The record is a 152-nucleotide sequence from Lactiplantibacillus plantarum, which matches "glmS glucosamine-6-phosphate activated ribozyme aptamer" in Rfam. Lineage of the source: Bacteria > Bacillati > Bacillota > Bacilli > Lactiplantibacillus plantarum.
[Rfam]
RNA sequence: UAAAGCGGAAUAGCGCCAGGACUUUAGAAUCUAAAGUUGACGAGGAUGACGUUUAUCGAUAAUCGACGGGUGACGUCAGGGACUGCACUCUACAGGUCAAUUACAAAAACCGACUGUGAGGUUGGUGACAGAUAUAUUGACCACGCAGCUAG
Numbered sequence: 001u002a003a004a005g006c007g008g009a010a011u012a013g014c015g016c017c018a019g020g021a022c023u024u025u026a027g028a029a030u031c032u033a034a035a036g037u038u039g040a041c042g043a044g045g046a047u048g049a050c051g052u053u054u055a056u057c058g059a060u061a062a063u064c065g066a067c068g069g070g071u072g073a074c075g076u077c078a079g080g081g082a083c084u085g086c087a088c089u090c091u092a093c094a095g096g097u098c099a100a101u102u103a104c105a106a107a108a109a110c111c112g113a114c115u116g117u118g119a120g121g122u123u124g125g126u127g128a129c130a131g132a133u134a135u136a137u138u139g140a141c142c143a144c145g146c147a148g149c150u151a152g
Base pairs, nucleotide, nucleotide: 020038021037022036023035024034025033026032027031048077049076050075051074052073056066057065058064059063078091079090080089081088095142096141097140098139099138100137101136109126110125111124112123113122114121115120

Description: A reference for the family is Jansen et al. (2006), "Backbone and nucleobase contacts to glucosamine-6-phosphate in the glmS ribozyme", Nat Struct Mol Biol.